The family of this 203-nucleotide sequence from Megasphaera geminata is "raiA RNA". NCBI's taxonomy places the organism under Bacteria, Negativicutes, Veillonellales, Megasphaera, Megasphaera geminata. It is one of the family's seed sequences. The family's RNA type in Rfam is riboswitch.
RNA sequence: CUGACACGUGCUGUGGUUGAAAGUCGAUGCCAGCCGCAGGCAAAGCGAUCCACGUAAGGGCUCCGAUACGGGCCUGAUCAUAGUGCGGCCUAGAAGUAAGACCUGCCGCGAAAAGCGAGAGAGGCAGUAGUGGGGAACGGCAGUUUACGAGCGAACCCUCCGGCAGGCGAGUGUGGGGGUAAAAACCAGGUCAGGCGUGUUUU
Dot-bracket structure: ..(((((((.((((((((........((([..((((((.]........(....(..(((..((......)).)))..)..[.)))))))............((((((((.....)))...((((.....((....(((....))).....))....))))..)))))....)))......]..)))))...))))))))))..